[Rfam]
About this RNA: mir-217 microRNA precursor family: a 93-nucleotide RNA sequence from Anguilla anguilla. The match comes from Rfam's covariance-model search (87 bits). The literature on the family includes a 2003 paper in Science by Lim et al., "Vertebrate microRNA genes".
RNA sequence: GGCUUUCUGGUGUUGAUGAUACUGCAUCAGGAACUGAUUGGAUGACAUUCAGGCGCCAUCAGUACCGGUUGCAUUGCCUUCAGCAUCGAAAGA
Numbered sequence: 001g002g003c004u005u006u007c008u009g010g011u012g013u014u015g016a017u018g019a020u021a022c023u024g025c026a027u028c029a030g031g032a033a034c035u036g037a038u039u040g041g042a043u044g045a046c047a048u049u050c051a052g053g054c055g056c057c058a059u060c061a062g063u064a065c066c067g068g069u070u071g072c073a074u075u076g077c078c079u080u081c082a083g084c085a086u087c088g089a090a091a092g093a
Base pairs, nucleotide, nucleotide: 023073024072025071026070030066031065033063034062035061036060037059039058040057041056